[Rfam]
The family of this 52-nucleotide sequence from Lactobacillus delbrueckii is "Ribosomal protein L13 leader". Rfam links the family to the GO term regulation of gene expression. For this family Rfam cites "Diverse mechanisms for regulating ribosomal protein synthesis in Escherichia coli" (Zengel and Lindahl, Prog Nucleic Acid Res Mol Biol, 1994).

Nucleotides: 052
Base pairs, nucleotide, nucleotide: 006046007045008044009043010042014038015037016036017035018034019033020032021031
Number, partner (000 for none) and nucleotide at each position: 001000a002000g003000u004000a005000u006046g007045u008044u009043u010042g011000u012000c013000c014038a015037c016036g017035g018034u019033a020032g021031g022000c023000c024000c025000c026000g027000g028000a029000a030000a031021c032020u033019u034018a035017u036016u037015g038014u039000a040000u041000u042010c043009a044008a045007a046006c047000u048000a049000c050000g051000a052000a